Shown here is a 180-nucleotide sequence from Encephalitozoon cuniculi, a member of the family "U2 spliceosomal RNA". It is annotated as a spliceosomal small nuclear RNA. NCBI's taxonomy places the organism under Eukaryota, Fungi, Microsporidia, Unikaryonidae, Encephalitozoon cuniculi.
[Rfam]
RNA sequence: CCACCUCUCAAGCCAAUCGGCUUUGAUCAAGUGUAGUAUCUGUUCUUGCCAGUGUAAGAACUGGCAUUAUCCGUCAGGAUAAACUCACGAAUUUUUGGGCGGCGAGAUGAGGCAGCGGAGCUUGAGCGCUUGCGUUUCGGUUGCUCUGCCAGAGGCUCGCGGGCUCCCGGGCUGUAGAUC
Numbered sequence: 001c002c003a004c005c006u007c008u009c010a011a012g013c014c015a016a017u018c019g020g021c022u023u024u025g026a027u028c029a030a031g032u033g034u035a036g037u038a039u040c041u042g043u044u045c046u047u048g049c050c051a052g053u054g055u056a057a058g059a060a061c062u063g064g065c066a067u068u069a070u071c072c073g074u075c076a077g078g079a080u081a082a083a084c085u086c087a088c089g090a091a092u093u094u095u096u097g098g099g100c101g102g103c104g105a106g107a108u109g110a111g112g113c114a115g116c117g118g119a120g121c122u123u124g125a126g127c128g129c130u131u132g133c134g135u136u137u138c139g140g141u142u143g144c145u146c147u148g149c150c151a152g153a154g155g156c157u158c159g160c161g162g163g164c165u166c167c168c169g170g171g172c173u174g175u176a177g178a179u180c
Base pairs, nucleotide, nucleotide: 008026009025010024011022012021013020014019047066048065049064050063051062052061067082068081069080070079071078072077112144113143114142115141116140118138119137125136126135127134128133148172149171150170152168154165155164156163157162